[Rfam]
RNA: mir-36 microRNA precursor family
RNA sequence: UAUUCCAGAGAUGCAGGGAGCCCAACUGGUUCUCACUGCAGUGAUAAGCUAUGUUACAGUCUAUCACCGGGUGAAAAACGGUUAGGCUCUUUAAGCAUCU
Numbered sequence: 001u002a003u004u005c006c007a008g009a010g011a012u013g014c015a016g017g018g019a020g021c022c023c024a025a026c027u028g029g030u031u032c033u034c035a036c037u038g039c040a041g042u043g044a045u046a047a048g049c050u051a052u053g054u055u056a057c058a059g060u061c062u063a064u065c066a067c068c069g070g071g072u073g074a075a076a077a078a079c080g081g082u083u084a085g086g087c088u089c090u091u092u093a094a095g096c097a098u099c100u
Stems, first nucleotide, its partner, number of pairs: 016091007024083005030077002033074005039069001041067006